A member of the RNA family "ALIL pseudoknot" from Sphingopyxis witflariensis, 117 nucleotides long. For this family Rfam cites "Apical loop-internal loop RNA pseudoknots: a new type of stimulator of -1 translational frameshifting in bacteria" (Mazauric et al., J Biol Chem, 2008). Rfam classes the family as a cis-regulatory element. Rfam 15.1 lists 2,146 matches to the family in 1,098 species.
RNA sequence: AGCAUAUUUUGCCCAGGCGGAGCUCGACCGCCCGUUCCGGAGAUGACUGCCUUCAUUGAUGAGCAUCGUGAGGUUUAUGGGGUCGAGCCGAUCUGCCGGGUUCUGCCGAUCGCCCCA
Numbered sequence: 001a002g003c004a005u006a007u008u009u010u011g012c013c014c015a016g017g018c019g020g021a022g023c024u025c026g027a028c029c030g031c032c033c034g035u036u037c038c039g040g041a042g043a044u045g046a047c048u049g050c051c052u053u054c055a056u057u058g059a060u061g062a063g064c065a066u067c068g069u070g071a072g073g074u075u076u077a078u079g080g081g082g083u084c085g086a087g088c089c090g091a092u093c094u095g096c097c098g099g100g101u102u103c104u105g106c107c108g109a110u111c112g113c114c115c116c117a
Stems, first nucleotide, its partner, number of pairs: 016032005078117005089112002092109002095106002098103001